[Rfam]
Shown here is a 77-nucleotide RNA from Eragrostis curvula, a member of the family "Small nucleolar RNA R12". The family's RNA type in Rfam is C/D-box small nucleolar RNA. From the family's description: snoR12 is a C/D box small nucleolar RNA, which acts as a methylation guide for 25S ribosomal RNA in plants. snoR12 has been alternatively named snoZ44 in Arabidopsis and snoZ131 in rice. The base pairs follow the family's consensus structure, which was predicted with PFOLD. Its family is annotated with RNA processing and nucleolus in the Gene Ontology. The literature on the family includes a 2003 paper in Nucleic Acids Res by Chen et al., "The high diversity of snoRNAs in plants: identification and comparative study of 120 snoRNA genes from Oryza sativa". Lineage of the source: Eukaryota > Streptophytina > Euphyllophyta > Petrosaviidae > Eragrostis.

RNA sequence: GCGAGUAUGAAGAUUCGGAUUCCCAUUGAUUUCUGCAAGAAACAUGAGAUCUUAAAAACCAGUUCCUUCUGACUCAC
Numbered sequence: 001g002c003g004a005g006u007a008u009g010a011a012g013a014u015u016c017g018g019a020u021u022c023c024c025a026u027u028g029a030u031u032u033c034u035g036c037a038a039g040a041a042a043c044a045u046g047a048g049a050u051c052u053u054a055a056a057a058a059c060c061a062g063u064u065c066c067u068u069c070u071g072a073c074u075c076a077c
Base pairs, nucleotide, nucleotide: 001077003075004074005073